[Rfam]
RNA sequence: UUUCUUACAGUCCCUUGUCAUUCUCUCGCCCGGUGUAUCUUCGCGACUGGACGGAGAACUGAUAAGGGCUUGUGGAAAA
Number, nucleotide and partner (000 for none) at each position: 001u000002u000003u000004c000005u000006u000007a000008c000009a000010g000011u000012c068013c067014c066015u065016u064017g063018u062019c061020a060021u058022u057023c056024u055025c054026u053027c000028g000029c050030c049031c000032g000033g000034u000035g000036u000037a000038u000039c000040u000041u000042c000043g000044c000045g000046a000047c000048u000049g030050g029051a000052c000053g026054g025055a024056g023057a022058a021059c000060u020061g019062a018063u017064a016065a015066g014067g013068g012069c000070u000071u000072g000073u000074g000075g000076a000077a000078a000079a000
This 79-nucleotide RNA from Brassicogethes aeneus belongs to the Rfam family "mir-184 microRNA precursor family". Taxonomically the source falls in Brassicogethes (Eukaryota, Bilateria, Altocrustacea, Pterygota). Pairs were carried over by alignment from the consensus structure, which was predicted with PFOLD. Its family is annotated with RISC complex and gene silencing by miRNA in the Gene Ontology.